[Rfam]
RNA sequence: CUGGAAUGAUGCUUCUUUAGCCAAAUCAGACUAUUUUUGAUGUGCUCCGUGAGGCAUCCUCUUUCAAAGCUUUUCUCUUAGUAACCGGUGAUAUAGCUUUGGUUGGAUGCCUUUCGUCGAAGCGCAUCCUCUGAUGAUACACUUGAGAUUGGUUGCCUUGCUGACCCAGA
Numbered sequence: 001c002u003g004g005a006a007u008g009a010u011g012c013u014u015c016u017u018u019a020g021c022c023a024a025a026u027c028a029g030a031c032u033a034u035u036u037u038u039g040a041u042g043u044g045c046u047c048c049g050u051g052a053g054g055c056a057u058c059c060u061c062u063u064u065c066a067a068a069g070c071u072u073u074u075c076u077c078u079u080a081g082u083a084a085c086c087g088g089u090g091a092u093a094u095a096g097c098u099u100u101g102g103u104u105g106g107a108u109g110c111c112u113u114u115c116g117u118c119g120a121a122g123c124g125c126a127u128c129c130u131c132u133g134a135u136g137a138u139a140c141a142c143u144u145g146a147g148a149u150u151g152g153u154u155g156c157c158u159u160g161c162u163g164a165c166c167c168a169g170a
Base pairs, nucleotide, nucleotide: 001169002168003167004166
The family of this 170-nucleotide RNA sequence from Theobroma umbraticum is "small nucleolar RNA snoR127". Pairs were carried over by alignment from the consensus structure, which was predicted with RNAalifold. The source organism's lineage runs through Eukaryota, Mesangiospermae, Pentapetalae, Malvaceae and Theobroma. The match comes from Rfam's covariance-model search (54 bits). Gene Ontology terms of the family: nucleolus and RNA processing.